[Rfam]
RNA sequence: GGAUUAAGCCCAGUAUCACAAGGUACUACAAGGUGCUGACGUGUGCGAUGCACAGAGUCGGAAUCCGCAAUUUUUGGAAAGCUCUUCCGGGGAUGUCCGGUGGAGCGAA
Numbered sequence: 001g002g003a004u005u006a007a008g009c010c011c012a013g014u015a016u017c018a019c020a021a022g023g024u025a026c027u028a029c030a031a032g033g034u035g036c037u038g039a040c041g042u043g044u045g046c047g048a049u050g051c052a053c054a055g056a057g058u059c060g061g062a063a064u065c066c067g068c069a070a071u072u073u074u075u076g077g078a079a080a081g082c083u084c085u086u087c088c089g090g091g092g093a094u095g096u097c098c099g100g101u102g103g104a105g106c107g108a109a
Stems, first nucleotide, its partner, number of pairs: 007037002009033002013029002016025001038059003042054005083107001085105005091098002
This 109-nucleotide RNA sequence from Ancylostoma caninum belongs to the Rfam family "SL2 RNA".
Rfam describes the family as follows. This family represents SL2 RNA. SL2 RNA is involved in trans splicing in lower eukaryotes.
For this family Rfam cites "trans splicing of polycistronic Caenorhabditis elegans pre-mRNAs: analysis of the SL2 RNA" (Evans and Blumenthal, Mol Cell Biol, 2000).
Rfam links the family to the GO term mRNA trans splicing, via spliceosome.
Taxonomically the source falls in Ancylostoma (Eukaryota, Metazoa, Eumetazoa, Rhabditida).